Actino-pnp RNA: a 71-nucleotide sequence from Streptomyces sp. BR123.
The base pairs follow the family's consensus structure, which is taken from published work.
RNA sequence: GCCGGUCCUCGGUAGUGGUACCCGGAAAUGCCCCACGGGCGCCGAACCGGGUACUUCGAUCGAAGACCGGC
Numbered sequence: 001g002c003c004g005g006u007c008c009u010c011g012g013u014a015g016u017g018g019u020a021c022c023c024g025g026a027a028a029u030g031c032c033c034c035a036c037g038g039g040c041g042c043c044g045a046a047c048c049g050g051g052u053a054c055u056u057c058g059a060u061c062g063a064a065g066a067c068c069g070g071c
Base pairs, nucleotide, nucleotide: 001071002070003069004068005067006066007065009063010062011061012060013059017055018054019053020052021051022050023049024048025047
A search with the family's covariance model found it, with a score of 63 bits.